[Rfam]
A member of the RNA family "Bacterial RNase P class A", 400 nucleotides long. The base pairs follow the family's consensus structure, which is taken from published work. By type it is a ribozyme.
Nucleotides: 400
Base pairs, nucleotide, nucleotide: 001396002395003394004393005392006391007390008389009388010387011385012349013348014347015346016345017344018343020041021040022039023038025036026035027034028033046383047382048381050380051379052378053377054376055219056218057217058216064282065281069215070214071213072212073211074088075087076086077085078084089103090101091100092099093098104210105209109208110207111204112203113202126150127149128146129145130144131143132142133141134140135139158176159175160174161173162172163171177199178197179196180195183192184191185190223305224304225303226302233296234295235294236293237292238291274287275286276285278283313332314331315330316329317328318327319326320325
Number, partner (000 for none) and nucleotide at each position: 001396g002395c003394g004393g005392a006391u007390g008389g009388c010387c011385g012349g013348a014347u015346g016345g017344c018343c019000g020041c021040g022039g023038c024000a025036g026035g027034g028033c029000g030000c031000a032000a033028g034027c035026c036025c037000g038023g039022u040021c041020g042000a043000g044000g045000a046383a047382a048381g049000u050380c051379c052378g053377g054376a055219c056218u057217c058216c059000a060000a061000a062000a063000c064282g065281g066000c067000a068000a069215g070214g071213g072212u073211g074088c075087c076086g077085g078084g079000u080000a081000a082000c083000g084078c085077c086076c087075g088074g089103c090101g091100g092099g093098g094000g095000u096000a097000a098093c099092c100091c101090c102000a103089g104210g105209g106000a107000a108000a109208g110207c111204g112203c113202c114000a115000c116000a117000g118000a119000g120000a121000a122000c123000a124000g125000a126150c127149c128146g129145c130144c131143c132142c133141g134140g135139u136000u137000u138000g139135g140134c141133c142132g143131g144130g145129g146128u147000a148000a149127g150126g151000g152000u153000g154000a155000a156000a157000c158176g159175g160174u161173g162172g163171g164000g165000u166000a167000a168000g169000a170000g171163c172162c173161c174160a175159c176158c177199g178197c179196g180195c181000g182000a183192u184191g185190g186000g187000c188000a189000a190185c191184c192183a193000g194000a195180g196179c197178g198000g199177c200000a201000c202113g203112g204111c205000a206000a207110g208109c209105c210104c211073c212072a213071c214070c215069c216058g217057g218056a219055g220000c221000a222000a223305u224304g225303c226302c227000a228000a229000a230000u231000a232000g233296g234295g235294g236293c237292c238291u239000c240000g241000c242000g243000c244000c245000g246000g247000u248000g249000u250000g251000a252000u253000c254000g255000g256000g257000c258000a259000a260000c261000c262000g263000a264000u265000a266000u267000c268000c269000c270000g271000g272000c273000a274287g275286g276285g277000a278283c279000g280000c281065c282064u283278g284000a285276c286275c287274c288000g289000a290000g291238a292237g293236g294235c295234c296233c297000g298000g299000g300000u301000u302226g303225g304224c305223a306000g307000c308000c309000a310000g311000a312000g313332g314331c315330g316329g317328c318327g319326u320325g321000g322000c323000a324000a325320c326319a327318c328317g329316c330315c331314g332313u333000u334000c335000a336000g337000a338000c339000g340000a341000a342000u343018g344017g345016c346015c347014a348013u349012c350000g351000a352000a353000c354000c355000g356000g357000g358000g359000c360000a361000a362000c363000c364000c365000g366000g367000g368000g369000a370000a371000c372000a373000a374000a375000a376054u377053c378052c379051g380050g381048c382047u383046u384000a385011c386000a387010g388009g389008c390007c391006a392005u393004c394003c395002g396001c397000g398000c399000g400000u